[Rfam]
RNA sequence: GGUCACGAGGACCAGCGCCACGCCCUCCGGCGAGCUGGUCCGGCAACCGCGCCUCGCGCACGGUGCCCCCGGAGGAAGACCGGCCCGCGCCGACCGGCUCGGGAAGAGCGAGAC
Numbered sequence: 001g002g003u004c005a006c007g008a009g010g011a012c013c014a015g016c017g018c019c020a021c022g023c024c025c026u027c028c029g030g031c032g033a034g035c036u037g038g039u040c041c042g043g044c045a046a047c048c049g050c051g052c053c054u055c056g057c058g059c060a061c062g063g064u065g066c067c068c069c070c071g072g073a074g075g076a077a078g079a080c081c082g083g084c085c086c087g088c089g090c091c092g093a094c095c096g097g098c099u100c101g102g103g104a105a106g107a108g109c110g111a112g113a114c
Stems, first nucleotide, its partner, number of pairs: 001081004009040001011039006021032002042067003047063003051059002084103004089098003
RNA: SAM (S-adenosyl methionine) riboswitch aptamer
Organism: Georgenia satyanarayanai